[Rfam]
The record is a 77-nucleotide sequence from Alligator sinensis, which matches "Mammalian CPEB3 ribozyme" in Rfam. On this family, see Salehi-Ashtiani et al., Science 2006: "A genomewide search for ribozymes reveals an HDV-like sequence in the human CPEB3 gene".
RNA sequence: AGUUGCAAGUUUGAGGCCAUAGCAGAAGCCCUCAUGGCAUGUCCCUGUCAGAUUCUAUCGAAUCUAUAAAUUCUGCU
Numbered sequence: 001a002g003u004u005g006c007a008a009g010u011u012u013g014a015g016g017c018c019a020u021a022g023c024a025g026a027a028g029c030c031c032u033c034a035u036g037g038c039a040u041g042u043c044c045c046u047g048u049c050a051g052a053u054u055c056u057a058u059c060g061a062a063u064c065u066a067u068a069a070a071u072u073c074u075g076c077u
Stems, first nucleotide, its partner, number of pairs: 013045001015043003021077007028038003050065006